[Rfam]
RNA sequence: AUCGUCGGAGGAUAGAGGAAGUCGGGGCGACCCGGCUGGACGCGAAAUUCUAC
Dot-bracket structure: ...................(((((((....)))))))................